Source information
This 112-nucleotide RNA from Lacticaseibacillus manihotivorans belongs to the Rfam family "23S methyl RNA motif". It scores 57 bits against the family's covariance model. The organism belongs to Lacticaseibacillus manihotivorans, within Bacteria. Its family is annotated with regulation of gene expression in the Gene Ontology. A reference for the family is Weinberg et al. (2007), "Identification of 22 candidate structured RNAs in bacteria using the CMfinder comparative genomics pipeline", Nucleic Acids Res.

[Rfam]
RNA sequence: UUAUUUCUGGCUUUAAUCAGGGCUUGCUUUUGGGAAAUUGAUUAAAGUUAGCGAUAGGAAACUUAAUUAAGGUACCGUCUCGCCGUGCUAGACACCGAGGCGGUAUUUUUAU
Numbered sequence: 001u002u003a004u005u006u007c008u009g010g011c012u013u014u015a016a017u018c019a020g021g022g023c024u025u026g027c028u029u030u031u032g033g034g035a036a037a038u039u040g041a042u043u044a045a046a047g048u049u050a051g052c053g054a055u056a057g058g059a060a061a062c063u064u065a066a067u068u069a070a071g072g073u074a075c076c077g078u079c080u081c082g083c084c085g086u087g088c089u090a091g092a093c094a095c096c097g098a099g100g101c102g103g104u105a106u107u108u109u110u111a112u
Stems, first nucleotide, its partner, number of pairs: 002056004007051013069109014085095003